[Rfam]
RNA sequence: AUCUCAAGUGAUGAACUUGGAUUGAAAUUCUCACGACGGUCGUCUGAGGCACUCUCUAGUGUCUACGUUGAUGUUUAACAAUCCAACUCUGAUGAUU
Numbered sequence: 001a002u003c004u005c006a007a008g009u010g011a012u013g014a015a016c017u018u019g020g021a022u023u024g025a026a027a028u029u030c031u032c033a034c035g036a037c038g039g040u041c042g043u044c045u046g047a048g049g050c051a052c053u054c055u056c057u058a059g060u061g062u063c064u065a066c067g068u069u070g071a072u073g074u075u076u077a078a079c080a081a082u083c084c085a086a087c088u089c090u091g092a093u094g095a096u097u
Stems, first nucleotide, its partner, number of pairs: 001097001004094001050061003
A member of the RNA family "Small nucleolar RNA Z161/Z228" from Carnegiea gigantea, 97 nucleotides long. Taxonomically the source falls in Carnegiea (Eukaryota, Streptophyta, Spermatophyta, Cactoideae). A search with the family's covariance model found it, with a score of 55 bits. On this family, see Chen et al., Nucleic Acids Res 2003: "The high diversity of snoRNAs in plants: identification and comparative study of 120 snoRNA genes from Oryza sativa". It is annotated as a C/D-box small nucleolar RNA.